Rfam assigns this 47-nucleotide RNA from Lactuca saligna to the family "Plastid-rpl16 group II-D1 intron". Rfam describes the family as follows. Plastid-rpl16 is a non-coding RNA (ncRNA) recognised in plastids. It was recognised in and intronic region of a ribosome rpl16 gene. On this family, see Richter et al., Plant Commun 2023: "Retrograde signaling in plants: A critical review focusing on the GUN pathway and beyond". Pairs were carried over by alignment from the consensus structure, which was predicted with LocARNA.
RNA sequence: AAGAGUUUCGAGCCAAUAAAGGCUAAGAAUAUUAACUCAAGAACUAA
Numbered sequence: 001a002a003g004a005g006u007u008u009c010g011a012g013c014c015a016a017u018a019a020a021g022g023c024u025a026a027g028a029a030u031a032u033u034a035a036c037u038c039a040a041g042a043a044c045u046a047a
Base pairs, nucleotide, nucleotide: 007041008040010038011037012036015033016032017031
The organism belongs to Lactuca, within Eukaryota.